Nucleotides: 241
Stems, first nucleotide, its partner, number of pairs: 007104002015099004028086003039076003050072006106136002108133005138150001139148002183204007212236002221234004
Number, partner (000 for none) and nucleotide at each position: 001000a002000u003000a004000a005000a006000u007104g008103c009000a010000a011000u012000g013000a014000c015099u016098g017097a018096g019000a020000a021000c022000a023000a024000g025000u026000a027000a028086g029085a030084a031000u032000u033000u034000u035000a036000a037000c038000u039076c040075c041074u042000a043000a044000c045000a046000g047000a048000a049000a050072g051071a052070u053069g054068c055067c056000g057000g058000u059000u060000g061000a062000u063000g064000c065000a066000a067055g068054g069053c070052a071051u072050u073000c074041a075040g076039g077000u078000g079000u080000g081000a082000c083000u084030u085029u086028c087000c088000c089000a090000a091000u092000a093000c094000a095000u096018c097017u098016c099015a100000a101000g102000a103008g104007c105000a106136a107135c108133u109132c110131u111130c112129u113000g114000a115000a116000a117000g118000a119000g120000c121000a122000a123000u124000a125000u126000g127000u128000a129112g130111g131110a132109g133108a134000c135107g136106u137000c138150c139148g140147a141000u142000a143000a144000g145000c146000a147140u148139c149000g150138g151000u152000u153000a154000u155000a156000u157000g158000c159000u160000u161000a162000a163000g164000u165000a166000u167000g168000u169000a170000a171000g172000u173000a174000c175000u176000u177000g178000c179000u180000g181000a182000g183204g184203u185202u186201u187200c188199u189198a190000u191000u192000g193000u194000g195000a196000g197000a198189u199188a200187g201186a202185a203184a204183c205000g206000a207000a208000c209000a210000u211000u212236g213235g214000u215000g216000g217000u218000a219000a220000c221234g222233c223232g224231g225000u226000u227000a228000a229000u230000c231224c232223c233222g234221u235213c236212c237000u238000u239000u240000g241000a
Notes:
A member of the RNA family "T-box leader" from Alkalibaculum bacchi, 241 nucleotides long. The base pairs follow the family's consensus structure, which is taken from published work. Rfam 15.1 lists 19,395 matches to the family in 1,923 species. The source organism's lineage runs through Bacteria, Bacillota, Eubacteriales, Eubacteriaceae and Alkalibaculum. By type it is a cis-regulatory leader. A reference for the family is Grundy et al. (1994), "Interaction between the acceptor end of tRNA and the T box stimulates antitermination in the Bacillus subtilis tyrS gene: a new role for the discriminator base", J Bacteriol. Uncharged tRNA acts as the effector for transcription antitermination of genes in the T-box leader family.